[Rfam]
RNA sequence: UGUCUCUGGUUCGUCUGCAUUUGACCGAGAAAAUCUUUCGCCUUUACUAAAGAUUUCCGUGCAGACGAACAAUUAUGAAAUAUAUGUCAAUUUUGGAAGUCCCUUGCAAAAGCGGGACA
Numbered sequence: 001u002g003u004c005u006c007u008g009g010u011u012c013g014u015c016u017g018c019a020u021u022u023g024a025c026c027g028a029g030a031a032a033a034u035c036u037u038u039c040g041c042c043u044u045u046a047c048u049a050a051a052g053a054u055u056u057c058c059g060u061g062c063a064g065a066c067g068a069a070c071a072a073u074u075a076u077g078a079a080a081u082a083u084a085u086g087u088c089a090a091u092u093u094u095g096g097a098a099g100u101c102c103c104u105u106g107c108a109a110a111a112g113c114g115g116g117a118c119a
Stems, first nucleotide, its partner, number of pairs: 003080001005078002009070011031056008099118005